[Rfam]
RNA sequence: GGAUCAAUGAUGAAAACAAGUGUCUGAGGACAGUGAUUGACUCGUAACUAUGCCAAUCUGAGAGCC
Numbered sequence: 001g002g003a004u005c006a007a008u009g010a011u012g013a014a015a016a017c018a019a020g021u022g023u024c025u026g027a028g029g030a031c032a033g034u035g036a037u038u039g040a041c042u043c044g045u046a047a048c049u050a051u052g053c054c055a056a057u058c059u060g061a062g063a064g065c066c
Stems, first nucleotide, its partner, number of pairs: 001066002004063002
The record is a 66-nucleotide RNA sequence from Mesocricetus auratus, which matches "Small nucleolar RNA SNORD109A" in Rfam. The base pairs follow the family's consensus structure, which was predicted with WAR. The literature on the family includes a 2001 paper in Hum Mol Genet by Runte et al., "The IC-SNURF-SNRPN transcript serves as a host for multiple small nucleolar RNA species and as an antisense RNA for UBE3A". About the family: Humans have two copies of the SNORD109 gene, SNORD109A and SNORD109B. Rfam classes the family as a C/D-box small nucleolar RNA. The organism belongs to Mesocricetus, within Eukaryota.